[Rfam]
RNA sequence: UAAGUAAAUCGCCUUAUCGCGCUUAUACUAAAGUAAAUUUAGUGCAAGUGAGGAAAGUCUGGACACCGUAGUGCAAUAUAGUGGUUAACAGCCACCAGCCGUGAGGUUAGGAAAAGUGCAACAGAAAGUAUGUACAGGUCAUGCUGUAGUGAAACCAGGUAAACUCUAUGUGGUGCAAUGUCAUGUAUACUAGCGUUUGAGCGUGCACGCGCGAGUUAGAGGGUAGGCAGCUAAAGUGUGUUGGUAACAACUCACGAAGAUAAAUGAUAAGGGUUAAAACAGUAAUGUUUUAAUACAGAAUCCGGCUUAUAGAUUUACUUAUAUA
Numbered sequence: 001u002a003a004g005u006a007a008a009u010c011g012c013c014u015u016a017u018c019g020c021g022c023u024u025a026u027a028c029u030a031a032a033g034u035a036a037a038u039u040u041a042g043u044g045c046a047a048g049u050g051a052g053g054a055a056a057g058u059c060u061g062g063a064c065a066c067c068g069u070a071g072u073g074c075a076a077u078a079u080a081g082u083g084g085u086u087a088a089c090a091g092c093c094a095c096c097a098g099c100c101g102u103g104a105g106g107u108u109a110g111g112a113a114a115a116g117u118g119c120a121a122c123a124g125a126a127a128g129u130a131u132g133u134a135c136a137g138g139u140c141a142u143g144c145u146g147u148a149g150u151g152a153a154a155c156c157a158g159g160u161a162a163a164c165u166c167u168a169u170g171u172g173g174u175g176c177a178a179u180g181u182c183a184u185g186u187a188u189a190c191u192a193g194c195g196u197u198u199g200a201g202c203g204u205g206c207a208c209g210c211g212c213g214a215g216u217u218a219g220a221g222g223g224u225a226g227g228c229a230g231c232u233a234a235a236g237u238g239u240g241u242u243g244g245u246a247a248c249a250a251c252u253c254a255c256g257a258a259g260a261u262a263a264a265u266g267a268u269a270a271g272g273g274u275u276a277a278a279a280c281a282g283u284a285a286u287g288u289u290u291u292a293a294u295a296c297a298g299a300a301u302c303c304g305g306c307u308u309a310u311a312g313a314u315u316u317a318c319u320u321a322u323a324u325a
Stems, first nucleotide, its partner, number of pairs: 001321010011310001012272007020050005026044006055308003059305005064175004071208004076171005081095005096110001097108004111166002116164002118160002179229004190219005201212004236255003240251004
RNA: Bacterial RNase P class A
Organism: Lacinutrix sp. 5H-3-7-4